[Rfam]
RNA sequence: GUAGGCUACGGGGACAUGGCCCCCAAGACCUACGUAGGCAUGUUCGUGGGUGCGCUGUGCGCCUUAGCCGGUGUGCUUACCAUCGCCCUCCCCGUGCCCGUCAUCGUGUCCAAC
Numbered sequence: 001g002u003a004g005g006c007u008a009c010g011g012g013g014a015c016a017u018g019g020c021c022c023c024c025a026a027g028a029c030c031u032a033c034g035u036a037g038g039c040a041u042g043u044u045c046g047u048g049g050g051u052g053c054g055c056u057g058u059g060c061g062c063c064u065u066a067g068c069c070g071g072u073g074u075g076c077u078u079a080c081c082a083u084c085g086c087c088c089u090c091c092c093c094g095u096g097c098c099c100g101u102c103a104u105c106g107u108g109u110c111c112a113a114c
Stems, first nucleotide, its partner, number of pairs: 001114002004111002007108005013102003018097001021094001037077004049063003
RNA: Potassium channel RNA editing signal
Organism: Frankliniella occidentalis